[Rfam]
RNA: Bacterial RNase P class A
RNA sequence: CGAGCAAGUCAGACAGCCGCGGGUGCAGUGCCGAAAGGCCGCAUCUGAGGAAAGUCCGAGCUUCACAGGGCAGGAUAGCGGGUAACGCCCGCCGGAGGCGACUCCAGGGAAAGUGCAACAGAAAUAUACCGCCGCGUAAGCGGUAAGGGUGGAAAGGCGAGGUAAGAGCUCACCGGCGCACAGGAGACUGUGCGGCCCUGCAAACCCUAUCCGAAGCAACACCGCAUAGAGGAACGUAUACGCUGGCCCGGCGUGUUCCGGGAAGGUGGCUUGAGCUGCACGGCAACGUGUAGUCGAGAUAGAUGGCUGUCAAAUACAGAACUCGGCUUAUAGACUUACUCGUGCC
Numbered sequence: 001c002g003a004g005c006a007a008g009u010c011a012g013a014c015a016g017c018c019g020c021g022g023g024u025g026c027a028g029u030g031c032c033g034a035a036a037g038g039c040c041g042c043a044u045c046u047g048a049g050g051a052a053a054g055u056c057c058g059a060g061c062u063u064c065a066c067a068g069g070g071c072a073g074g075a076u077a078g079c080g081g082g083u084a085a086c087g088c089c090c091g092c093c094g095g096a097g098g099c100g101a102c103u104c105c106a107g108g109g110a111a112a113g114u115g116c117a118a119c120a121g122a123a124a125u126a127u128a129c130c131g132c133c134g135c136g137u138a139a140g141c142g143g144u145a146a147g148g149g150u151g152g153a154a155a156g157g158c159g160a161g162g163u164a165a166g167a168g169c170u171c172a173c174c175g176g177c178g179c180a181c182a183g184g185a186g187a188c189u190g191u192g193c194g195g196c197c198c199u200g201c202a203a204a205c206c207c208u209a210u211c212c213g214a215a216g217c218a219a220c221a222c223c224g225c226a227u228a229g230a231g232g233a234a235c236g237u238a239u240a241c242g243c244u245g246g247c248c249c250g251g252c253g254u255g256u257u258c259c260g261g262g263a264a265g266g267u268g269g270c271u272u273g274a275g276c277u278g279c280a281c282g283g284c285a286a287c288g289u290g291u292a293g294u295c296g297a298g299a300u301a302g303a304u305g306g307c308u309g310u311c312a313a314a315u316a317c318a319g320a321a322c323u324c325g326g327c328u329u330a331u332a333g334a335c336u337u338a339c340u341c342g343u344g345c346c
Base pairs, nucleotide, nucleotide: 001342002341003340004339006337007336008335009334010333011331012311013310014309015308016307017306018305020047021046022045023044024043025042026041028039052329053328054327056326057325058324059323060322061216062215063214064213068249069248070247071246073212074211075210076209077208078092079091080090081089082088093107094105095104096103097102108207109206113205114204115201116200117199129148130147131144132143133142134141135140156174157173159171160170161169176196177194178193179192180191181190182189183188220268221267222266223265231259232258233257234256235255240254241253242252243251244250275294276293277292278291279290280289281288282287